About this RNA
A member of the RNA family "Staphylococcus sRNA sau-53" from Staphylococcus argenteus, 192 nucleotides long. For this family Rfam cites "Identification of differentially expressed small non-protein-coding RNAs in Staphylococcus aureus displaying both the normal and the small-colony variant phenotype" (Abu-Qatouseh et al., J Mol Med (Berl), 2010). NCBI's taxonomy places the organism under Bacteria, Bacillati, Bacilli, Caryophanales, Staphylococcus. The base pairs follow the family's consensus structure, which was predicted with mfold.

RNA sequence: CAACCUGGAUUGGAAAUCAGUUUUGUUUCUUUGUUAUCAAAUGAUUGCCAUUCUGAAAUGCUAUAGAUAGCAUGAUUUAAGUCGUCUUGAGAUGCAGCUGAUUCUUUGUAAUAUGACUCAUAUACUUCACGAUUUUUAAUUCUAAACGCACCGGAUAAAUCGAUAACAUGAAUACCUUUUUCAACUAAAGGG
Number, nucleotide and partner (000 for none) at each position: 001c000002a000003a000004c000005c000006u000007g029008g028009a027010u000011u000012g000013g024014a023015a022016a000017u000018c000019a000020g000021u000022u015023u014024u013025g000026u000027u009028u008029c007030u000031u000032u168033g167034u166035u165036a164037u163038c162039a000040a000041a000042u000043g000044a156045u155046u154047g151048c000049c148050a000051u146052u145053c000054u000055g142056a141057a140058a000059u000060g098061c097062u096063a000064u094065a093066g000067a000068u089069a088070g087071c000072a085073u084074g083075a082076u081077u000078u000079a000080a000081g076082u075083c074084g073085u072086c000087u070088u069089g068090a000091g000092a000093u065094g064095c000096a062097g061098c060099u000100g000101a000102u000103u000104c000105u000106u132107u131108g130109u129110a126111a000112u124113a123114u122115g121116a000117c000118u000119c000120a000121u115122a114123u113124a112125c000126u110127u000128c000129a109130c108131g107132a106133u000134u000135u000136u000137u000138a000139a000140u057141u056142c055143u000144a000145a052146a051147c000148g049149c000150a000151c047152c000153g000154g046155a045156u044157a000158a000159a000160u000161c000162g038163a037164u036165a035166a034167c033168a032169u000170g000171a000172a000173u000174a000175c191176c190177u189178u188179u187180u000181u000182c000183a000184a000185c000186u000187a179188a178189a177190g176191g175192g000